[Rfam]
RNA sequence: ACGGGCGUCUUACCAGACACGGUUAGAUCUGGGUUCCAUUGUCUAAUACUGUCUGGUAAUGCCGUUCAU
Numbered sequence: 001a002c003g004g005g006c007g008u009c010u011u012a013c014c015a016g017a018c019a020c021g022g023u024u025a026g027a028u029c030u031g032g033g034u035u036c037c038a039u040u041g042u043c044u045a046a047u048a049c050u051g052u053c054u055g056g057u058a059a060u061g062c063c064g065u066u067c068a069u
Stems, first nucleotide, its partner, number of pairs: 003067005009061001010059010022047006

The family of this 69-nucleotide RNA sequence from Puma concolor is "mir-8/mir-141/mir-200 microRNA precursor family". Lineage of the source: Eukaryota > Dipnotetrapodomorpha > Mammalia > Boreoeutheria > Puma. Pairs were carried over by alignment from the consensus structure, which was predicted with RNAalifold. Clan: mir-8 microRNA precursor clan. It scores 60 bits against the family's covariance model. A reference for the family is Lagos-Quintana et al. (2001), "Identification of novel genes coding for small expressed RNAs", Science.